[Rfam]
RNA sequence: CCCGGUACCUCGUACGGCCGGGACGACUGCCCCGGUACCUGACACGGCCGGGGAAG
Numbered sequence: 001c002c003c004g005g006u007a008c009c010u011c012g013u014a015c016g017g018c019c020g021g022g023a024c025g026a027c028u029g030c031c032c033c034g035g036u037a038c039c040u041g042a043c044a045c046g047g048c049c050g051g052g053g054a055a056g
Base pairs, nucleotide, nucleotide: 001022002021003020004019005018006017027056028055030053031052032051033050034049035048036047